Shown here is a 247-nucleotide RNA, a member of the family "Clostridiales-3 RNA". The family's RNA type in Rfam is small RNA. The family's consensus secondary structure is taken from published work.
[Rfam]
RNA sequence: UAGUAGUCUGACGGAUUGAGAAAUGAAGGACGAGAAGUUGAAGGAGAUUCUGAGAGCGUGGAAAGAUAAAUAUGUUGCGUAGGAUAAUAACCCAUAGAGGACAGAGAGUGUGUCCUUAUCCUCAAAACUGGCUAAGGGAGGAGAUAGUGUUUCAAAAAUUGAAAUGCGUCAUGUGCCUGUUCCCGAAGAUGAUAACAUCUUCUUGUACACGGGGCAGUAGGUCAUAAGAAGAAAUCGUGUACCUACA
Dot-bracket structure: .....((((.....(((....)))...)))).............................................................(((.(((((((.......))))))).(((((..............)))))(((.((.(((((.....))))).))))))))............((((((....))))))...(((((((..........((....))......))))))).....